[Rfam]
RNA sequence: AGCACUUGUGUGUGUUUUUAACUUUGGACAAAGACUUGUAGGCAAGCGCAAAAAGUAAAUCCUCUUUUGCAACCCAGAGCUCAUUGUUCAGUAUGAGUUUUGAUACAUGUAAGCAGGAAUACU
Number, nucleotide and partner (000 for none) at each position: 001a000002g049003c048004a000005c046006u045007u044008g043009u042010g000011u040012g000013u000014g035015u034016u033017u032018u031019u030020a000021a000022c026023u000024u000025u000026g022027g000028a000029c000030a019031a018032a017033g016034a015035c014036u000037u000038g000039u000040a011041g000042g009043c008044a007045a006046g005047c000048g003049c002050a000051a000052a000053a000054a000055g000056u000057a000058a000059a120060u119061c000062c117063u116064c000065u000066u113067u112068u111069g110070c000071a000072a000073c000074c000075c102076a101077g100078a099079g098080c097081u096082c095083a094084u093085u000086g000087u000088u000089c000090a000091g000092u000093a084094u083095g082096a081097g080098u079099u078100u077101u076102g075103a000104u000105a000106c000107a000108u000109g000110u069111a068112a067113g066114c000115a000116g063117g062118a000119a060120u059121a000122c000123u000
A member of the RNA family "Small nucleolar RNA SNORA40" from Ictidomys tridecemlineatus, 123 nucleotides long. It scores 109 bits against the family's covariance model. The snoRNA ACA 40 belongs to the H/ACA family of snoRNAs and guides the pseudouridylation of 28S rRNA subunit at position U4565. NCBI's taxonomy places the organism under Eukaryota, Opisthokonta, Boreoeutheria, Xerinae, Ictidomys. For this family Rfam cites "Mapping to nucleotide resolution of pseudouridine residues in large subunit ribosomal RNAs from representative eukaryotes, prokaryotes, archaebacteria, mitochondria and chloroplasts" (Ofengand and Bakin, J Mol Biol, 1997).